[Rfam]
RNA sequence: AGAGCGGCCUGAUUUAGCCUCUCCUAGGCUUUGUCUGUACCUAGAGGACGGAGACAUAGCCUAGAAUAGGUUAGGUCAGGGCUCGAGG
Numbered sequence: 001a002g003a004g005c006g007g008c009c010u011g012a013u014u015u016a017g018c019c020u021c022u023c024c025u026a027g028g029c030u031u032u033g034u035c036u037g038u039a040c041c042u043a044g045a046g047g048a049c050g051g052a053g054a055c056a057u058a059g060c061c062u063a064g065a066a067u068a069g070g071u072u073a074g075g076u077c078a079g080g081g082c083u084c085g086a087g088g
Stems, first nucleotide, its partner, number of pairs: 012076009027061004032056005

Rfam assigns this 88-nucleotide RNA from Neodiprion lecontei to the family "mir-282 microRNA precursor family". The base pairs follow the family's consensus structure, which was predicted with RNAalifold. For this family Rfam cites "Direct sequencing and expression analysis of a large number of miRNAs in Aedes aegypti and a multi-species survey of novel mosquito miRNAs" (Li et al., BMC Genomics, 2009). It scores 70 bits against the family's covariance model. Taxonomically the source falls in Neodiprion (Eukaryota, Mandibulata, Insecta, Hymenoptera).